This 58-nucleotide sequence from Kocuria sp. WRN011 belongs to the Rfam family "msiK RNA". The source organism's lineage runs through Bacteria, Bacillati, Actinomycetes, Micrococcaceae and Kocuria.

RNA sequence: CGCCAUCCUUUUCUCCUACGGAUCGUCCGGCACGUGCCUGCCGGGAAAGAGGAACUAC
Numbered sequence: 001c002g003c004c005a006u007c008c009u010u011u012u013c014u015c016c017u018a019c020g021g022a023u024c025g026u027c028c029g030g031c032a033c034g035u036g037c038c039u040g041c042c043g044g045g046a047a048a049g050a051g052g053a054a055c056u057a058c
Stems, first nucleotide, its partner, number of pairs: 009050004014046002027044006
The family's consensus secondary structure is taken from published work.